This 76-nucleotide RNA sequence belongs to the Rfam family "L13-Bacteroidia ribosomal protein leader".
A reference for the family is Eckert and Weinberg (2020), "Discovery of 20 novel ribosomal leader candidates in bacteria and archaea", BMC Microbiol.
Rfam classes the family as a cis-regulatory leader.
RNA sequence: GGGGAAACUCUUAGAAUCCCCGUGAACAGGGGUGUGAAUAGCGGCGUCUUUGGCCGGGCGAAGCGGUUCGUGAAUC
Numbered sequence: 001g002g003g004g005a006a007a008c009u010c011u012u013a014g015a016a017u018c019c020c021c022g023u024g025a026a027c028a029g030g031g032g033u034g035u036g037a038a039u040a041g042c043g044g045c046g047u048c049u050u051u052g053g054c055c056g057g058g059c060g061a062a063g064c065g066g067u068u069c070g071u072g073a074a075u076c
Stems, first nucleotide, its partner, number of pairs: 001021005035070005041064002045060005